A member of the RNA family "Xanthomonas sRNA sX9", 76 nucleotides long. The sequence is in the family's curated seed alignment.
RNA sequence: AUGUACCACCCGUACACUCCGGUUCCUCCGCGCCGUCCACACCCACCUGACGACUGCUCGCUACGUUUUGUUAGCC
Dot-bracket structure: .(((((.....)))))...((((.(....).))))...........(((((((..............)))))))..
The family's RNA type in Rfam is small RNA.